[Rfam]
RNA sequence: UCGGCCCCGGUUCACGGCGCGCAUCCCGCGUGCCGACCCGGCGCC
Numbered sequence: 001u002c003g004g005c006c007c008c009g010g011u012u013c014a015c016g017g018c019g020c021g022c023a024u025c026c027c028g029c030g031u032g033c034c035g036a037c038c039c040g041g042c043g044c045c
Stems, first nucleotide, its partner, number of pairs: 003045003007041004015035008
RNA: L31-Actinobacteria ribosomal protein leader